The family of this 139-nucleotide sequence from Leptobrachium leishanense is "Small nucleolar RNA SNORA22". The match comes from Rfam's covariance-model search (93 bits). Rfam links the family to the GO terms nucleolus and RNA processing. Rfam classes the family as an H/ACA-box small nucleolar RNA. ACA22 is a member of the H/ACA class of snoRNA that guide the sites of modification of uridines to pseudouridines.

RNA sequence: CCGCACAGGGAACACCCAAGUGUGCUCUGUAGCUCCCUUGGUUCAUAUCCUGUGCUAAAUUGAUGUCUGUUCUUUUACCUCUGCGUUUGGGAUGAGUUUUUUUUAUUCUCCUGCACGUAUUCAGAAGCACAGUACAUUG
Numbered sequence: 001c002c003g004c005a006c007a008g009g010g011a012a013c014a015c016c017c018a019a020g021u022g023u024g025c026u027c028u029g030u031a032g033c034u035c036c037c038u039u040g041g042u043u044c045a046u047a048u049c050c051u052g053u054g055c056u057a058a059a060u061u062g063a064u065g066u067c068u069g070u071u072c073u074u075u076u077a078c079c080u081c082u083g084c085g086u087u088u089g090g091g092a093u094g095a096g097u098u099u100u101u102u103u104u105a106u107u108c109u110c111c112u113g114c115a116c117g118u119a120u121u122c123a124g125a126a127g128c129a130c131a132g133u134a135c136a137u138u139g
Base pairs, nucleotide, nucleotide: 003055004054005053006052007051008050010049016041017040018039019038020037022035024033025032026031057073059071061069062068080125081124082123083122084117085116086115089112090111091110092109094107095106